[Rfam]
RNA sequence: GUGAUGGCUUGGUGGUCGUAUGUAUGACGUCAUUUACUUGUUCUUUUAGGAGUGACAUCAUAUGUACGGCUGCUAAACUGCCAC
Numbered sequence: 001g002u003g004a005u006g007g008c009u010u011g012g013u014g015g016u017c018g019u020a021u022g023u024a025u026g027a028c029g030u031c032a033u034u035u036a037c038u039u040g041u042u043c044u045u046u047u048a049g050g051a052g053u054g055a056c057a058u059c060a061u062a063u064g065u066a067c068g069g070c071u072g073c074u075a076a077a078c079u080g081c082c083a084c
Stems, first nucleotide, its partner, number of pairs: 002083002005080003015070008024061004029056001031054003037050002
RNA: mir-489 microRNA precursor family